mir-34 microRNA precursor family: a 67-nucleotide sequence from Conger conger. A search with the family's covariance model found it, with a score of 59 bits. The base pairs follow the family's consensus structure, which was predicted with RNAalifold. Human mir-34a was discovered computationally and later experimentally verified. The mature sequence is excised from the 5' arm of the hairpin. Rfam 15.1 lists 2,256 matches to the family in 820 species.
RNA sequence: GGUCACCAGGCAGUGUAGUUAGCUGAUUGCGAUGUUCGGUAAUCACUAUCUACACAGCCAGGUGAAC
Numbered sequence: 001g002g003u004c005a006c007c008a009g010g011c012a013g014u015g016u017a018g019u020u021a022g023c024u025g026a027u028u029g030c031g032a033u034g035u036u037c038g039g040u041a042a043u044c045a046c047u048a049u050c051u052a053c054a055c056a057g058c059c060a061g062g063u064g065a066a067c
Stems, first nucleotide, its partner, number of pairs: 003065004009059002013055006020048003024045007